The family of this 101-nucleotide sequence from Thermanaeromonas sp. C210 is "Purine riboswitch aptamer". A search with the family's covariance model found it, with a score of 81 bits. The source organism's lineage runs through Bacteria, Bacillota, Clostridia, Neomoorellaceae and Thermanaeromonas.
RNA sequence: GAAUUUAUUAAAAGACUACUUCGUAUAACCCUGGUAAUGGGUCCGGGGGUCUCUACCAGGUGACCGUAAAUCACCCGACUACGAAGUUGGGUUCCUCAUGG
Numbered sequence: 001g002a003a004u005u006u007a008u009u010a011a012a013a014g015a016c017u018a019c020u021u022c023g024u025a026u027a028a029c030c031c032u033g034g035u036a037a038u039g040g041g042u043c044c045g046g047g048g049g050u051c052u053c054u055a056c057c058a059g060g061u062g063a064c065c066g067u068a069a070a071u072c073a074c075c076c077g078a079c080u081a082c083g084a085a086g087u088u089g090g091g092u093u094c095c096u097c098a099u100g101g
Stems, first nucleotide, its partner, number of pairs: 018087008029048006057077001059075005